[Rfam]
RNA sequence: CCACAUGGCAUUGGAUCCAGAGUGUGUCCCCAGACAUUGUACCUGGCGCUGUUAGCUGGAAUUAAAGUACGUU
Numbered sequence: 001c002c003a004c005a006u007g008g009c010a011u012u013g014g015a016u017c018c019a020g021a022g023u024g025u026g027u028c029c030c031c032a033g034a035c036a037u038u039g040u041a042c043c044u045g046g047c048g049c050u051g052u053u054a055g056c057u058g059g060a061a062u063u064a065a066a067g068u069a070c071g072u073u
Stems, first nucleotide, its partner, number of pairs: 005052005017046004022035002025032002
Dot-bracket structure: ....(((((.......((((.((.((....)).)).......)))).))))).....................